[Rfam]
RNA: nhaA-I RNA
RNA sequence: GGGUGUCGGCUGUAUAGCGCAGUUAGGCAGGUUAUGAUUAUGCGUCGGUCGGGCCGCCACG
Numbered sequence: 001g002g003g004u005g006u007c008g009g010c011u012g013u014a015u016a017g018c019g020c021a022g023u024u025a026g027g028c029a030g031g032u033u034a035u036g037a038u039u040a041u042g043c044g045u046c047g048g049u050c051g052g053g054c055c056g057c058c059a060c061g
Base pairs, nucleotide, nucleotide: 005028006027007026008024009023010022011021043061044060045059047058048057049056